Rfam assigns this 62-nucleotide sequence from Otolemur garnettii to the family "U7 small nuclear RNA". It scores 38 bits against the family's covariance model. From the family's description: Animal histone pre-mRNAs are spliced by a different mechanism than nuclear pre-mRNAs and self-splicing introns. The organism belongs to Otolemur, within Eukaryota.
RNA sequence: UAAUAUUACAGCUCUUUUUGAAUUUGUUUAUCAGGUUUUCUGGUUCUCAUAGGAAGACUUCC
Numbered sequence: 001u002a003a004u005a006u007u008a009c010a011g012c013u014c015u016u017u018u019u020g021a022a023u024u025u026g027u028u029u030a031u032c033a034g035g036u037u038u039u040c041u042g043g044u045u046c047u048c049a050u051a052g053g054a055a056g057a058c059u060u061c062c
Base pairs, nucleotide, nucleotide: 034059035058036057037056038055039054040053041052043050044049